Record summary:
The record is a 139-nucleotide sequence from Nannospalax galili, which matches "Small nucleolar RNA SNORA29" in Rfam. It scores 142 bits against the family's covariance model. Pairs were carried over by alignment from the consensus structure, which was predicted with PFOLD. The literature on the family includes a 2001 paper in EMBO J by Huttenhofer et al., "RNomics: an experimental approach that identifies 201 candidates for novel, small, non-messenger RNAs in mouse". Rfam links the family to the GO terms nucleolus and RNA processing. The source organism's lineage runs through Eukaryota, Vertebrata, Euteleostomi, Amniota and Nannospalax. Clan: SNORA20 clan. From the family's description: ACA29 is a member of the H/ACA class of snoRNA that guide the sites of modification of uridines to pseudouridines. The family has 26 seed sequences and 960 matches in Rfam 15.1.
[Rfam]
RNA sequence: CUUCCCAGUUGACUACCACAUUUUCUCCUGUAGUAGAGCUUAGUGGCUAUGCUUAUGGGAUAGAGUAAAGGUGCUGUGAUCUGAAGAGGGAGGGCUUUUCCGUGUCCUCCUCCUAUAUGAAAUGGCUCCACAGAAAACU
Number, nucleotide and partner (000 for none) at each position: 001c000002u000003u000004c059005c058006c057007a056008g000009u000010u000011g000012a000013c000014u000015a000016c046017c045018a044019c043020a000021u000022u000023u000024u000025c000026u000027c000028c000029u000030g000031u000032a000033g000034u000035a000036g000037a000038g000039c000040u000041u000042a000043g019044u018045g017046g016047c000048u000049a000050u000051g000052c000053u000054u000055a000056u007057g006058g005059g004060a000061u000062a000063g000064a000065g000066u000067a000068a000069a000070g000071g000072u000073g126074c125075u124076g123077u000078g000079a000080u000081c000082u000083g000084a000085a000086g000087a000088g000089g000090g000091a114092g113093g112094g111095c000096u000097u000098u000099u000100c000101c000102g000103u000104g000105u000106c000107c000108u000109c000110c000111u094112c093113c092114u091115a000116u000117a000118u000119g000120a000121a000122a000123u076124g075125g074126c073127u000128c000129c000130a000131c000132a000133g000134a000135a000136a000137a000138c000139u000